[Rfam]
RNA sequence: GCGCAUUCCGAGGGGUGCCCCGCAAGGGGCUGAGAUAGCGCGAGCUGACCCUUGAACCUGAUCCGGGUCAUGCCGGCGUAGGAACGGGAAUCACCAUGGGC
Numbered sequence: 001g002c003g004c005a006u007u008c009c010g011a012g013g014g015g016u017g018c019c020c021c022g023c024a025a026g027g028g029g030c031u032g033a034g035a036u037a038g039c040g041c042g043a044g045c046u047g048a049c050c051c052u053u054g055a056a057c058c059u060g061a062u063c064c065g066g067g068u069c070a071u072g073c074c075g076g077c078g079u080a081g082g083a084a085c086g087g088g089a090a091u092c093a094c095c096a097u098g099g100g101c
Stems, first nucleotide, its partner, number of pairs: 006089005011052004017030005037046003057082004063076004